[Rfam]
RNA: mir-31 microRNA precursor family
RNA sequence: AUCAAGAGAGAAGGCAAGAUGUUGGCAUAGCUGUAUAGAUUGAAACCUGCUAUGCCAUUGUAUUGCCAUCUUUCAUCUCU
Numbered sequence: 001a002u003c004a005a006g007a008g009a010g011a012a013g014g015c016a017a018g019a020u021g022u023u024g025g026c027a028u029a030g031c032u033g034u035a036u037a038g039a040u041u042g043a044a045a046c047c048u049g050c051u052a053u054g055c056c057a058u059u060g061u062a063u064u065g066c067c068a069u070c071u072u073u074c075a076u077c078u079c080u
Stems, first nucleotide, its partner, number of pairs: 006074006013067005019061003023057009